[Rfam]
RNA sequence: AGCCACGCGGUGAGCACAAAGCGAACUUUUCUUUCGCCUUUUACUAAAGAAUACCGUGUGCUUGCUGAUUUUUAGCGGCAUGCGCCGAAAGAAAGAAUAAUUAAAAUAAAUUAAAUUAAAUUAAA
Numbered sequence: 001a002g003c004c005a006c007g008c009g010g011u012g013a014g015c016a017c018a019a020a021g022c023g024a025a026c027u028u029u030u031c032u033u034u035c036g037c038c039u040u041u042u043a044c045u046a047a048a049g050a051a052u053a054c055c056g057u058g059u060g061c062u063u064g065c066u067g068a069u070u071u072u073u074a075g076c077g078g079c080a081u082g083c084g085c086c087g088a089a090a091g092a093a094a095g096a097a098u099a100a101u102u103a104a105a106a107u108a109a110a111u112u113a114a115a116u117u118a119a120a121u122u123a124a125a
Base pairs, nucleotide, nucleotide: 003078004077006075008067009066010065011064012063013062014061015060016059017058018057027053029051030050031049032048033047034046107124109122110121111120112119